Shown here is a 133-nucleotide RNA from Pongo abelii, a member of the family "U11 spliceosomal RNA". The family's RNA type in Rfam is spliceosomal small nuclear RNA. The base pairs follow the family's consensus structure, which is taken from published work. A search with the family's covariance model found it, with a score of 86 bits.

[Rfam]
Nucleotides: 133
Base pairs, nucleotide, nucleotide: 008083009082010081011080012079013026014025015024016023017022027053028052029051032048033047034046035045036044037043057076058075059074060073061072101131102130103129104128107126108125109124112122113121114120115119
Number, partner (000 for none) and nucleotide at each position: 001000a002000a003000a004000a005000a006000g007000g008083g009082c010081u011080u012079c013026u014025g015024c016023u017022g018000u019000g020000a021000g022017u023016g024015g025014c026013a027053c028052a029051c030000a031000u032048a033047g034046g035045g036044c037043a038000u039000c040000g041000u042000u043037u044036g045035c046034u047033c048032u049000u050000g051029g052028u053027g054000c055000c056000a057076g058075a059074a060073u061072c062000a063000a064000c065000a066000u067000c068000a069000a070000g071000a072061g073060a074059u075058u076057u077000c078000a079012g080011a081010a082009g083008c084000a085000u086000a087000a088000u089000u090000u091000u092000u093000u094000g095000g096000u097000a098000c099000u100000u101131g102130g103129g104128u105000a106000g107126c108125u109124g110000g111000u112122g113121a114120u115119c116000a117000u118000u119115g120114g121113u122112c123000a124109u125108g126107g127000a128104g129103c130102c131101c132000u133000u